The family of this 138-nucleotide RNA sequence from Cucumis melo is "Small nucleolar RNA snoR2/U65". Rfam links the family to the GO terms RNA processing and nucleolus. NCBI's taxonomy places the organism under Eukaryota, Tracheophyta, Spermatophyta, Pentapetalae, Cucumis. The match comes from Rfam's covariance-model search (80 bits). A reference for the family is Shaw et al. (1998), "Localization and processing from a polycistronic precursor of novel snoRNAs in maize", J Cell Sci. The family's RNA type in Rfam is H/ACA-box small nucleolar RNA.
[Rfam]
RNA sequence: GGUUCAAUGUCACAUAGUCGAUAGCUAAGAGCAGUGACCCACAAAGCUAUGAUUGAACGAAAAACAAGCCUUUCACAUCUUGGUAGGAAUUUGUUAUUUCUCAAUAGAUUUACAGAGCUGUUUCAUGUGAUCACAAUU
Numbered sequence: 001g002g003u004u005c006a007a008u009g010u011c012a013c014a015u016a017g018u019c020g021a022u023a024g025c026u027a028a029g030a031g032c033a034g035u036g037a038c039c040c041a042c043a044a045a046g047c048u049a050u051g052a053u054u055g056a057a058c059g060a061a062a063a064a065c066a067a068g069c070c071u072u073u074c075a076c077a078u079c080u081u082g083g084u085a086g087g088a089a090u091u092u093g094u095u096a097u098u099u100c101u102c103a104a105u106a107g108a109u110u111u112a113c114a115g116a117g118c119u120g121u122u123u124c125a126u127g128u129g130a131u132c133a134c135a136a137u138u
Base pairs, nucleotide, nucleotide: 002058003057004056005055006054007053008052009050013046015044017042018041020039022037024032025031026030073130074129075128076127077126086119087118091115092114093113096110098108099107